[Rfam]
RNA sequence: CGAGCGACAUCCGAAAAGCUUAAAUAGAGUAGGAA
Dot-bracket structure: .((((....[[[.....))))..........]]].

The record is a 35-nucleotide RNA sequence from Kordia sp. SMS9, which matches "DUF805b RNA" in Rfam.
It scores 41 bits against the family's covariance model.
Pairs were carried over by alignment from the consensus structure, which is taken from published work.
The family is grouped with related families in Rfam's "DUF805 clan".